[Rfam]
RNA: Glutamine riboswitch aptamer (glnA leader)
RNA sequence: AACGUUCAUCCCUUUAGGGACGGAAGUAGACUAAUGUCGAAGGAACGCAUG
Numbered sequence: 001a002a003c004g005u006u007c008a009u010c011c012c013u014u015u016a017g018g019g020a021c022g023g024a025a026g027u028a029g030a031c032u033a034a035u036g037u038c039g040a041a042g043g044a045a046c047g048c049a050u051g
Stems, first nucleotide, its partner, number of pairs: 003047005009020004023048001029038003